[Rfam]
RNA sequence: CCACAACUGUGUCUUAUGGCUUUCUAUUCCUAUGUGAGUCGUUCUAACAUUUCAUGUAGGGUUUAAAGCCAUUGGACACACGGUGG
Numbered sequence: 001c002c003a004c005a006a007c008u009g010u011g012u013c014u015u016a017u018g019g020c021u022u023u024c025u026a027u028u029c030c031u032a033u034g035u036g037a038g039u040c041g042u043u044c045u046a047a048c049a050u051u052u053c054a055u056g057u058a059g060g061g062u063u064u065a066a067a068g069c070c071a072u073u074g075g076a077c078a079c080a081c082g083g084u085g086g
Stems, first nucleotide, its partner, number of pairs: 001086004008080007016072008026063001028061010
The record is an 86-nucleotide RNA from Liparis tanakae, which matches "mir-135 microRNA precursor family" in Rfam.
A search with the family's covariance model found it, with a score of 68 bits.
Pairs were carried over by alignment from the consensus structure, which was predicted with PFOLD.
On this family, see Lagos-Quintana et al., Curr Biol 2002: "Identification of tissue-specific microRNAs from mouse".
Taxonomically the source falls in Liparis (Eukaryota, Deuterostomia, Teleostei, Euteleosteomorpha).
The family has 88 seed sequences and 2,125 matches in Rfam 15.1.